[Rfam]
RNA sequence: CCGGGGUGCGGGUCUUCUUCAACCCGCACCUUGGUGACAACCAAAGCGUGACCCAUAAGGUCGUCGCUUUUAAUUUUGAAGUAAUGAGACCAGCAGGGGCAUCCGGGCUGGUACCCGGACUACUUGCGUGAUACUCGGUGGCUUGUUGUAGUCGCUGCACUCGGACUUAUUCAAGCUUGCUGUGGCGUCAACGCCGGUGGAGUCCCCAAACGAGGGUGACCA
Numbered sequence: 001c002c003g004g005g006g007u008g009c010g011g012g013u014c015u016u017c018u019u020c021a022a023c024c025c026g027c028a029c030c031u032u033g034g035u036g037a038c039a040a041c042c043a044a045a046g047c048g049u050g051a052c053c054c055a056u057a058a059g060g061u062c063g064u065c066g067c068u069u070u071u072a073a074u075u076u077u078g079a080a081g082u083a084a085u086g087a088g089a090c091c092a093g094c095a096g097g098g099g100c101a102u103c104c105g106g107g108c109u110g111g112u113a114c115c116c117g118g119a120c121u122a123c124u125u126g127c128g129u130g131a132u133a134c135u136c137g138g139u140g141g142c143u144u145g146u147u148g149u150a151g152u153c154g155c156u157g158c159a160c161u162c163g164g165a166c167u168u169a170u171u172c173a174a175g176c177u178u179g180c181u182g183u184g185g186c187g188u189c190a191a192c193g194c195c196g197g198u199g200g201a202g203u204c205c206c207c208a209a210a211c212g213a214g215g216g217u218g219a220c221c222a
Stems, first nucleotide, its partner, number of pairs: 001034013044069005051061003096207004100202001102119006120200005126194003130189002134184001137181005142175004150167004

Record summary: The family of this 222-nucleotide sequence from Pseudomonas sp. M47T1 is "sucA-II RNA". The source organism's lineage runs through Bacteria, Pseudomonadota, Gammaproteobacteria, Pseudomonadales and Pseudomonas. Rfam classes the family as a cis-regulatory element. A search with the family's covariance model found it, with a score of 163 bits.